[Rfam]
RNA sequence: CGCACUGUUGGUCGGCUAGAUACGGCAGCGACGGGGGAGACGGUCUCUGUGGGGAGUUGAGACGACCAGCACGCGGGCGAAGAUAGCGCGUGGCUCAAAUGACUGUCUGAA
Numbered sequence: 001c002g003c004a005c006u007g008u009u010g011g012u013c014g015g016c017u018a019g020a021u022a023c024g025g026c027a028g029c030g031a032c033g034g035g036g037g038a039g040a041c042g043g044u045c046u047c048u049g050u051g052g053g054g055a056g057u058u059g060a061g062a063c064g065a066c067c068a069g070c071a072c073g074c075g076g077g078c079g080a081a082g083a084u085a086g087c088g089c090g091u092g093g094c095u096c097a098a099a100u101g102a103c104u105g106u107c108u109g110a111a
Stems, first nucleotide, its partner, number of pairs: 001037001003035001005034006025050004042067004054096004070092006082107005

Description: The family of this 111-nucleotide RNA from Cupriavidus necator is "Betaproteobacteria-1 RNA". Rfam's curators put it in the seed alignment. The family's consensus secondary structure is taken from published work. Rfam classes the family as a small RNA. NCBI's taxonomy places the organism under Bacteria, Betaproteobacteria, Burkholderiales, Burkholderiaceae, Cupriavidus necator.